[Rfam]
Background: Rfam assigns this 95-nucleotide RNA sequence from Blautia pseudococcoides to the family "Glycine riboswitch aptamer".
RNA sequence: AACAACGACUCUGGAGAGUCUCAGUAAGAGCGCCGAAGGUGUACAGCAGUUUCAUCAGCUGCCAAUCUCUCAGGCAAAAGGACAGAGUAUACACA
Number, nucleotide and partner (000 for none) at each position: 001a000002a000003c000004a000005a000006c000007g000008a088009c087010u086011c085012u084013g083014g000015a000016g000017a000018g000019u000020c030021u029022c028023a000024g000025u000026a000027a000028g022029a021030g020031c000032g075033c074034c073035g071036a070037a000038g000039g069040u000041g067042u000043a000044c000045a000046g062047c061048a060049g059050u058051u000052u000053c000054a000055u000056c000057a000058g050059c049060u048061g047062c046063c000064a000065a000066u000067c041068u000069c039070u036071c035072a000073g034074g033075c032076a000077a000078a000079a000080g000081g000082a000083c013084a012085g011086a010087g009088u008089a000090u000091a000092c000093a000094c000095a000
This family represents the bacterial glycine riboswitch.